[Rfam]
The record is a 264-nucleotide RNA sequence, which matches "Streptomyces sRNA 4677" in Rfam. A reference for the family is Hindra et al. (2014), "Complex intra-operonic dynamics mediated by a small RNA in Streptomyces coelicolor", PLoS One.
RNA sequence: CGACGCGGUAACCCGGGACGUCAACUACUAAAGAACCAAGGGAAAUAACCAACCCCACCCGACCCACCCCGGCAGCCACCAGACGAACCCACCGGGGUCCGUCACCCACAUGGGUGAGGUUUGCCAACUGAGCUGGAUUUCGUGCCGGUUGGCAGGCAUAUGCUCACGCCAGCACCACAUCAGACAUCAGACAUACGUCGGCCCCCGGCCGGGACAGCCAUCCCGAACGAGGGCCUGACCACCAAGGAAGAAAACGGCUUCCCG
Numbered sequence: 001c002g003a004c005g006c007g008g009u010a011a012c013c014c015g016g017g018a019c020g021u022c023a024a025c026u027a028c029u030a031a032a033g034a035a036c037c038a039a040g041g042g043a044a045a046u047a048a049c050c051a052a053c054c055c056c057a058c059c060c061g062a063c064c065c066a067c068c069c070c071g072g073c074a075g076c077c078a079c080c081a082g083a084c085g086a087a088c089c090c091a092c093c094g095g096g097g098u099c100c101g102u103c104a105c106c107c108a109c110a111u112g113g114g115u116g117a118g119g120u121u122u123g124c125c126a127a128c129u130g131a132g133c134u135g136g137a138u139u140u141c142g143u144g145c146c147g148g149u150u151g152g153c154a155g156g157c158a159u160a161u162g163c164u165c166a167c168g169c170c171a172g173c174a175c176c177a178c179a180u181c182a183g184a185c186a187u188c189a190g191a192c193a194u195a196c197g198u199c200g201g202c203c204c205c206c207g208g209c210c211g212g213g214a215c216a217g218c219c220a221u222c223c224c225g226a227a228c229g230a231g232g233g234c235c236u237g238a239c240c241a242c243c244a245a246g247g248a249a250g251a252a253a254a255c256g257g258c259u260u261c262c263c264g
Stems, first nucleotide, its partner, number of pairs: 007243003016089002102117006132173002134166003200235005206229002211224004246262005
Located in the intergenic region between anti-sigma factor SCO4677 gene and a putative regulatory protein gene SCO4676. scr4677 expression requires the SCO4677 activity and scr4677 sRNA itself seem to affect the levels of the SCO4676-associated transcripts.